[Rfam]
Shown here is a 59-nucleotide RNA from Mesorhizobium sp. J18, a member of the family "terC RNA".
RNA sequence: CCACCAGGCCGGGCCCCUCUGGCAGCACAUAUCAUGUGCUGUGAUGUCGGACUGGAAGU
Numbered sequence: 001c002c003a004c005c006a007g008g009c010c011g012g013g014c015c016c017c018u019c020u021g022g023c024a025g026c027a028c029a030u031a032u033c034a035u036g037u038g039c040u041g042u043g044a045u046g047u048c049g050g051a052c053u054g055g056a057a058g059u
Stems, first nucleotide, its partner, number of pairs: 006053002009050004022042008
Rfam classes the family as a cis-regulatory element. NCBI's taxonomy places the organism under Bacteria, Pseudomonadati, Alphaproteobacteria, Hyphomicrobiales, Mesorhizobium.